A member of the RNA family "ZMP/ZTP riboswitch aptamer (pfl RNA motif)" from Cnuibacter physcomitrellae, 81 nucleotides long.
RNA sequence: UCGGACCGUCGCAACUGGCGCUCAGAUGGUCACCAUCGGGGAGCGAUGACAGGGAUUCGGCCGCGCGCCUGGGUCGAUACG
Numbered sequence: 001u002c003g004g005a006c007c008g009u010c011g012c013a014a015c016u017g018g019c020g021c022u023c024a025g026a027u028g029g030u031c032a033c034c035a036u037c038g039g040g041g042a043g044c045g046a047u048g049a050c051a052g053g054g055a056u057u058c059g060g061c062c063g064c065g066c067g068c069c070u071g072g073g074u075c076g077a078u079a080c081g
Stems, first nucleotide, its partner, number of pairs: 007048006015040002017069005026036004058076005
Gene Ontology terms of the family: one-carbon metabolic process and regulation of purine nucleotide biosynthetic process. The source organism's lineage runs through Bacteria, Bacillati, Actinomycetes, Micrococcales and Cnuibacter. A search with the family's covariance model found it, with a score of 47 bits.